The record is a 159-nucleotide RNA from Scyliorhinus torazame, which matches "U1 spliceosomal RNA" in Rfam. The match comes from Rfam's covariance-model search (133 bits). By type it is a spliceosomal small nuclear RNA. Rfam describes the family as follows. U1 is a small nuclear RNA (snRNA) component of the spliceosome (involved in pre-mRNA splicing).
[Rfam]
RNA sequence: AUACUUACCUGGCAGGGGUGAAACCAUGAUCAAAAAGGUGGUUCGCCCAGGACGAGGCUAGCCCAUUGCACUUCGGGUGUGCUGACGCCUGCGAUGUCCCCAAAUGCGGGAUACUCGACUGCAAAAUUUGUGGUAGUGGGGGACUGCGUUCGCGCUAAA
Numbered sequence: 001a002u003a004c005u006u007a008c009c010u011g012g013c014a015g016g017g018g019u020g021a022a023a024c025c026a027u028g029a030u031c032a033a034a035a036a037g038g039u040g041g042u043u044c045g046c047c048c049a050g051g052a053c054g055a056g057g058c059u060a061g062c063c064c065a066u067u068g069c070a071c072u073u074c075g076g077g078u079g080u081g082c083u084g085a086c087g088c089c090u091g092c093g094a095u096g097u098c099c100c101c102a103a104a105u106g107c108g109g110g111a112u113a114c115u116c117g118a119c120u121g122c123a124a125a126a127u128u129u130g131u132g133g134u135a136g137u138g139g140g141g142g143a144c145u146g147c148g149u150u151c152g153c154g155c156u157a158a159a
Stems, first nucleotide, its partner, number of pairs: 012122004016048006023042005049090003054086001056083003061078004092117003095113003099109002146155003
The family has 100 seed sequences and 40,184 matches in Rfam 15.1.